[Rfam]
RNA sequence: AAAAUUGUCGUCCUCCGCAGCCAGCAGGGCGUCGAUGAAAUCGCGGGGGAUGGCUUCGAAUUCGAUAGGCGUUCGCCGCAUUUCGCCGUACUCGGCGAUGAGCUUGCCGUCGCUGCUGUAGAUGCGCAGGGGAAUCUGCAGCUGGAUGCUGCGCAGCGCUUCGACGGAGGGGAGUGUGGGAUUGAUGUAGAGGAAGGCGCCGCUGAGGCUCAGCGCCAGACCGCAUACGACGGCGAAGCCGGACCACACGACGAAUUUCAGCAGGCGAAUCAAGGUGGCGGAUUUCCAGGGUA
Numbered sequence: 001a002a003a004a005u006u007g008u009c010g011u012c013c014u015c016c017g018c019a020g021c022c023a024g025c026a027g028g029g030c031g032u033c034g035a036u037g038a039a040a041u042c043g044c045g046g047g048g049g050a051u052g053g054c055u056u057c058g059a060a061u062u063c064g065a066u067a068g069g070c071g072u073u074c075g076c077c078g079c080a081u082u083u084c085g086c087c088g089u090a091c092u093c094g095g096c097g098a099u100g101a102g103c104u105u106g107c108c109g110u111c112g113c114u115g116c117u118g119u120a121g122a123u124g125c126g127c128a129g130g131g132g133a134a135u136c137u138g139c140a141g142c143u144g145g146a147u148g149c150u151g152c153g154c155a156g157c158g159c160u161u162c163g164a165c166g167g168a169g170g171g172g173a174g175u176g177u178g179g180g181a182u183u184g185a186u187g188u189a190g191a192g193g194a195a196g197g198c199g200c201c202g203c204u205g206a207g208g209c210u211c212a213g214c215g216c217c218a219g220a221c222c223g224c225a226u227a228c229g230a231c232g233g234c235g236a237a238g239c240c241g242g243a244c245c246a247c248a249c250g251a252c253g254a255a256u257u258u259c260a261g262c263a264g265g266c267g268a269a270u271c272a273a274g275g276u277g278g279c280g281g282a283u284u285u286c287c288a289g290g291g292u293a
Base pairs, nucleotide, nucleotide: 011171012170013169014168015167016166017165020162025045028042029041047084048083049082050081051080052079054078057075058074062069086095087094088093101160102159103158105155106154107153108148109147110146111145115142116141117140118139119138120137121136122135123133125131177288178287179286180285181284183282186278198267199266200265201264202262203261204260205259206258207257213239214238217235221232244253
Dot-bracket structure: ..........(((((((..(....(..((...........))..).((((((.(..((...(......)....))..))))))).(((....))).....(((.(((((((...(((((((((.(.....).).))))))))..))))....)))..))).)..))))))).....(((((.(..(...........((((((((((.....((..(...(..........)..)..))....(........)...)))))).))))..........)...).))))).....

The record is a 293-nucleotide RNA from Pseudomonas flexibilis, which matches "anti ponA RNA" in Rfam.
The match comes from Rfam's covariance-model search (156 bits).
Rfam links the family to the GO term response to antibiotic.
Transcribed antisense to the penicillin-binding protein 1A gene called ponA. It was identified by RNAseq and the expression was validated by 5' and 3' RACE experiments. AsponA expression was up or down regulated under different antibiotic stress. Due to its location it may be able to prevent the transcription or translation of the opposite gene. Study by Wurtzel et al. and Ferrara et al. also detected its expression.